A member of the RNA family "Streptococcus sRNA SpF66" from Veillonella sp. oral taxon 780, 208 nucleotides long.
It scores 64 bits against the family's covariance model.
A reference for the family is Mann et al. (2012), "Control of virulence by small RNAs in Streptococcus pneumoniae", PLoS Pathog.
RNA sequence: AUCACCCAAUCCGUGACGGGAAGGAGGUGUUAUCAUUGCUUAAUUUUUUAAUCUUGUUGUUUGUUACUAUCAUGGCGAAUGUAAUUAGCUACUACAUUUGCAAAUGGCUAGAUAGUAACAAUAAAUAGUGACUAGCCAAAGUCGUUACUUUUAGACGACAAAGAAAAAGCACAGGGCGGCAACCCUGUGCUUUUUUUGGUGUUAUCAA
Number, nucleotide and partner (000 for none) at each position: 001a000002u000003c000004a000005c000006c020007c019008a000009a000010u016011c015012c000013g000014u000015g011016a010017c000018g000019g007020g006021a000022a000023g000024g000025a000026g149027g148028u147029g146030u000031u000032a000033u000034c000035a000036u000037u000038g000039c000040u000041u059042a058043a057044u056045u000046u000047u000048u000049u000050a000051a000052u000053c000054u000055u000056g044057u043058u042059g041060u000061u000062u000063g000064u000065u000066a000067c000068u000069a000070u000071c000072a000073u144074g143075g142076c100077g099078a098079a000080u096081g095082u094083a093084a000085u091086u000087a000088g000089c000090u000091a085092c000093u083094a082095c081096a080097u000098u078099u077100g076101c000102a000103a000104a000105u000106g137107g136108c135109u134110a133111g132112a000113u130114a129115g000116u127117a000118a000119c000120a000121a000122u000123a000124a000125a000126u000127a116128g000129u114130g113131a000132c111133u110134a109135g108136c107137c106138a000139a000140a000141g000142u075143c074144g073145u000146u029147a028148c027149u026150u000151u000152u204153a203154g000155a202156c201157g000158a000159c198160a197161a196162a000163g000164a000165a194166a193167a192168a191169g190170c189171a188172c187173a186174g185175g184176g183177c000178g000179g000180c000181a000182a000183c176184c175185c174186u173187g172188u171189g170190c169191u168192u167193u166194u165195u000196u161197u160198g159199g000200u000201g156202u155203u153204a152205u000206c000207a000208a000